About this RNA: Shown here is a 155-nucleotide RNA from Atrichornis clamosus, a member of the family "Small Cajal body specific RNA 16". A search with the family's covariance model found it, with a score of 109 bits. The family's RNA type in Rfam is small Cajal body RNA. NCBI's taxonomy places the organism under Eukaryota, Vertebrata, Sauria, Archelosauria, Atrichornis. About the family: scaRNAs are a specific class of small nuclear RNAs which localise to the Cajal bodies and guide the modification of RNA polymerase II transcribed spliceosomal RNAs U1, U2, U4, U5 and U12. ACA47 belongs to the H/ACA box class of guide RNAs as it has the predicted hairpin-hinge-hairpin-tail structure, the conserved H/ACA-box motifs and is found associated with GAR1. ACA47 is predicted to guide the pseudouridylation of residue U5 of the U1 spliceosomal snRNA.
[Rfam]
RNA sequence: GUGGGCUGGGGAAGGGCUGCUGGGUGGUACCAGCCAGCCUCACCCGCGCCCGAGAUCAGCUCCCAGGUGGGCUCCGUGCUGAGCUCACCUGUGCAGUAACAGGUGUGAACAUUCAUGAAGCAUUUUGAUGGUCAUGUAUGAUACUGCAUACAACA
Number, nucleotide and partner (000 for none) at each position: 001g000002u000003g051004g050005g049006c048007u000008g045009g044010g043011g000012a000013a000014g000015g039016g038017c037018u036019g034020c033021u032022g031023g000024g030025u029026g000027g000028u000029a025030c024031c022032a021033g020034c019035c000036a018037g017038c016039c015040u000041c000042a000043c010044c009045c008046g000047c000048g006049c005050c004051c003052g000053a000054g000055a000056u000057c000058a000059g000060c000061u000062c000063c000064c081065a080066g000067g077068u076069g075070g074071g000072c000073u000074c070075c069076g068077u067078g000079c000080u065081g064082a000083g000084c000085u000086c000087a000088c000089c000090u150091g149092u148093g147094c146095a145096g144097u143098a142099a000100c140101a139102g000103g000104u000105g000106u134107g133108a132109a000110c130111a129112u128113u127114c000115a000116u000117g124118a123119a000120g000121c000122a000123u118124u117125u000126u000127g113128a112129u111130g110131g000132u108133c107134a106135u000136g000137u000138a000139u101140g100141a000142u098143a097144c096145u095146g094147c093148a092149u091150a090151c000152a000153a000154c000155a000